[Rfam]
RNA: Potassium channel RNA editing signal
RNA sequence: GUAGGUUACGGUGACAUGACGCCACAAACUACACUUGGACGUUUAGUAGGAAGUUUAUGUGCUGUUAUGGGUGUUCUAACUAUUGCACUCCCAGUACCUGUUAUUGUUAGUAAU
Numbered sequence: 001g002u003a004g005g006u007u008a009c010g011g012u013g014a015c016a017u018g019a020c021g022c023c024a025c026a027a028a029c030u031a032c033a034c035u036u037g038g039a040c041g042u043u044u045a046g047u048a049g050g051a052a053g054u055u056u057a058u059g060u061g062c063u064g065u066u067a068u069g070g071g072u073g074u075u076c077u078a079a080c081u082a083u084u085g086c087a088c089u090c091c092c093a094g095u096a097c098c099u100g101u102u103a104u105u106g107u108u109a110g111u112a113a114u
Base pairs, nucleotide, nucleotide: 001114002113004111008107009106010105011104013102014101015100016099018097021095022094037077038076039075049063050062